[Rfam]
RNA sequence: CAGCAUCCUCUGAUAGACCACGAGCACUGCCCCUGUUGCUCUCUGGUUUGCACUAAGAUGCCAGAACAACCUCCUCGCGCUUUCUGCCUGCCUGGCCCGUGGCAGCUCGGAUUGAAUGGGGGAGUACAGCC
Numbered sequence: 001c002a003g004c005a006u007c008c009u010c011u012g013a014u015a016g017a018c019c020a021c022g023a024g025c026a027c028u029g030c031c032c033c034u035g036u037u038g039c040u041c042u043c044u045g046g047u048u049u050g051c052a053c054u055a056a057g058a059u060g061c062c063a064g065a066a067c068a069a070c071c072u073c074c075u076c077g078c079g080c081u082u083u084c085u086g087c088c089u090g091c092c093u094g095g096c097c098c099g100u101g102g103c104a105g106c107u108c109g110g111a112u113u114g115a116a117u118g119g120g121g122g123a124g125u126a127c128a129g130c131c
Stems, first nucleotide, its partner, number of pairs: 003061005011052002014050006022041005028035001072123005080114001083111004088105005
Shown here is a 131-nucleotide RNA sequence from Merops nubicus, a member of the family "Small nucleolar RNA SNORA31". The match comes from Rfam's covariance-model search (75 bits). Taxonomically the source falls in Merops (Eukaryota, Opisthokonta, Metazoa, Vertebrata). Rfam links the family to the GO terms RNA processing and nucleolus.